This 91-nucleotide RNA from Apostasia shenzhenica belongs to the Rfam family "Small nucleolar RNA R38". The source organism's lineage runs through Eukaryota, Streptophytina, Magnoliopsida, Petrosaviidae and Apostasia.
[Rfam]
RNA sequence: GAGUGUGGAUGACGAGAAGCAAUUGCCAUAUACAGUUAUCCCUGUCUGAGAAUUUCAAACAGGUGCUGAAACUUGUUUAUCUGACACAAUU
Numbered sequence: 001g002a003g004u005g006u007g008g009a010u011g012a013c014g015a016g017a018a019g020c021a022a023u024u025g026c027c028a029u030a031u032a033c034a035g036u037u038a039u040c041c042c043u044g045u046c047u048g049a050g051a052a053u054u055u056c057a058a059a060c061a062g063g064u065g066c067u068g069a070a071a072c073u074u075g076u077u078u079a080u081c082u083g084a085c086a087c088a089a090u091u
Stems, first nucleotide, its partner, number of pairs: 001091002004088004
The base pairs follow the family's consensus structure, which was predicted with PFOLD.
The family's RNA type in Rfam is C/D-box small nucleolar RNA.
The match comes from Rfam's covariance-model search (66 bits).
Rfam links the family to the GO terms nucleolus and RNA processing.
From the family's description: snoR38 is a C/D box small nucleolar RNA conserved across yeast, human, Arabidopsis and rice. It is encoded in the intron of elongation factor-1 gamma in both pombe and cerevisiae. snoR38 guides the methylation of 2'-O-ribose sites in 28S rRNA.